[Rfam]
RNA sequence: AAGAGAGCUAUCCGUCGACAGUACAGUGAGUAAACUGUCAUGGAGUUGCUCUCUUUAA
Numbered sequence: 001a002a003g004a005g006a007g008c009u010a011u012c013c014g015u016c017g018a019c020a021g022u023a024c025a026g027u028g029a030g031u032a033a034a035c036u037g038u039c040a041u042g043g044a045g046u047u048g049c050u051c052u053c054u055u056u057a058a
Stems, first nucleotide, its partner, number of pairs: 001055004006050003011044004017039003021035002
Description: Shown here is a 58-nucleotide sequence from Locusta migratoria, a member of the family "mir-46/mir-47/mir-281 microRNA precursor family". Rfam links the family to the GO terms RISC complex and miRNA-mediated post-transcriptional gene silencing. The literature on the family includes a 2001 paper in Science by Lau et al., "An abundant class of tiny RNAs with probable regulatory roles in Caenorhabditis elegans". Taxonomically the source falls in Locusta (Eukaryota, Eumetazoa, Ecdysozoa, Pterygota). Rfam 15.1 lists 307 matches to the family in 262 species.